[Rfam]
RNA sequence: CUGGGUACCGAGCAAUCGGCACUGAAUACCGUAGAGAAGUCAGCAAAGGGCAUAGUAGGUGCAAGGCCCGCACCGAAGGCC
Numbered sequence: 001c002u003g004g005g006u007a008c009c010g011a012g013c014a015a016u017c018g019g020c021a022c023u024g025a026a027u028a029c030c031g032u033a034g035a036g037a038a039g040u041c042a043g044c045a046a047a048g049g050g051c052a053u054a055g056u057a058g059g060u061g062c063a064a065g066g067c068c069c070g071c072a073c074c075g076a077a078g079g080c081c
Stems, first nucleotide, its partner, number of pairs: 002026001004023003008019004040047001049081003058074005
The record is an 81-nucleotide RNA sequence from Noviherbaspirillum sedimenti, which matches "Group II catalytic intron D1-D4-1" in Rfam.
Pairs were carried over by alignment from the consensus structure.
Lineage of the source: Bacteria > Betaproteobacteria > Burkholderiales > Oxalobacteraceae > Noviherbaspirillum.